A member of the RNA family "Group II catalytic intron D1-D4-2" from Carboxylicivirga sp. M1479, 117 nucleotides long. It scores 93 bits against the family's covariance model. The literature on the family includes a 2001 paper in EMBO J by Chu et al., "Control of branch-site choice by a group II intron". Rfam describes the family as follows. Group II introns are found in rRNA, tRNA and mRNA of organelles in fungi, plants and protists, and also in mRNA in bacteria. NCBI's taxonomy places the organism under Bacteria, Bacteroidota, Marinilabiliales, Marinilabiliaceae, Carboxylicivirga. Pairs were carried over by alignment from the consensus structure.
RNA sequence: AGGGUUGAGCCACUGAGGUCGUCUUGCAGGAGGAGGCUUCAAACCGCCCAAAGGUGCUUUGGUAAAGAGCCAUGGUGCUGAGCGUUUGGGAAAGGCUGCACCACGAGUGCAGUUAGG
Numbered sequence: 001a002g003g004g005u006u007g008a009g010c011c012a013c014u015g016a017g018g019u020c021g022u023c024u025u026g027c028a029g030g031a032g033g034a035g036g037c038u039u040c041a042a043a044c045c046g047c048c049c050a051a052a053g054g055u056g057c058u059u060u061g062g063u064a065a066a067g068a069g070c071c072a073u074g075g076u077g078c079u080g081a082g083c084g085u086u087u088g089g090g091a092a093a094g095g096c097u098g099c100a101c102c103a104c105g106a107g108u109g110c111a112g113u114u115a116g117g
Stems, first nucleotide, its partner, number of pairs: 001014002003011002015040006022033004044117002047090006053079002056076003060072004095113006